[Rfam]
RNA sequence: GAAAAAGCCAGCUCGACAAAGCGGCGCUGGCAAGGACAACCAAUCUAGACCGUAUGGAGCCGUGCAGGGGAUCGGCUAAACGGCGACGCGUCGCGUCUGAAGGACCGGGGGCAUUGGUUAAAAUUUCAAGCCCUGCAACCAGUGUGCACGGAUUCUAGCAGGGUUUUAUAGAUCGUCAACACUAUAGAACGAUGAAAUCAUUACUAAUUGUGA
Numbered sequence: 001g002a003a004a005a006a007g008c009c010a011g012c013u014c015g016a017c018a019a020a021g022c023g024g025c026g027c028u029g030g031c032a033a034g035g036a037c038a039a040c041c042a043a044u045c046u047a048g049a050c051c052g053u054a055u056g057g058a059g060c061c062g063u064g065c066a067g068g069g070g071a072u073c074g075g076c077u078a079a080a081c082g083g084c085g086a087c088g089c090g091u092c093g094c095g096u097c098u099g100a101a102g103g104a105c106c107g108g109g110g111g112c113a114u115u116g117g118u119u120a121a122a123a124u125u126u127c128a129a130g131c132c133c134u135g136c137a138a139c140c141a142g143u144g145u146g147c148a149c150g151g152a153u154u155c156u157a158g159c160a161g162g163g164u165u166u167u168a169u170a171g172a173u174c175g176u177c178a179a180c181a182c183u184a185u186a187g188a189a190c191g192a193u194g195a196a197a198u199c200a201u202u203a204c205u206a207a208u209u210g211u212g213a
Stems, first nucleotide, its partner, number of pairs: 008030005014024001050117003058077005085097005143181003148176004154172004
Dot-bracket structure: .......(((((.(.........).)))))...................(((.....(((((..........))))).......(((((...))))).................))).........................(((..((((..((((...........))))))))..)))................................
Rfam assigns this 213-nucleotide sequence from Burkholderia sp. WAC0059 to the family "Burkholderia sRNA Bp1_Cand738_SIPHT". A reference for the family is Khoo et al. (2012), "Computational discovery and RT-PCR validation of novel Burkholderia conserved and Burkholderia pseudomallei unique sRNAs", BMC Genomics. The organism belongs to Burkholderia, within Bacteria.